[Rfam]
The family of this 200-nucleotide RNA sequence from Medicago truncatula is "MIR2619 microRNA precursor family".
Taxonomically the source falls in Medicago (Eukaryota, Streptophyta, Spermatophyta, Fabaceae).
A search with the family's covariance model found it, with a score of 180 bits.
Pairs were carried over by alignment from the consensus structure, which was predicted with RNAalifold.

RNA sequence: AAACAGCCUCCUAUGUAUUGGAUCUUUGACAGUUUUGGUCCCAAUAUCACUUUUGAUUUAGUCUUCGCUGAGGUGGCACCCACAAUGGUCGACACGUGGCACCUCACAUAAGGAAUGUGCGUGCCACGUCAGCGAAGACUAAGUCAAAAGUGGCAUUGGAGGCCAAAACUGCCAAAAAUCCAAUACAUAGGGGGUUGUCU
Dot-bracket structure: (..(((((...((((((((((((.((((.(((((((((((((((..........................(..((((((.(.....................................).))))))..)..........................)))).))))))))))).)))).))))))))))))...)))))..)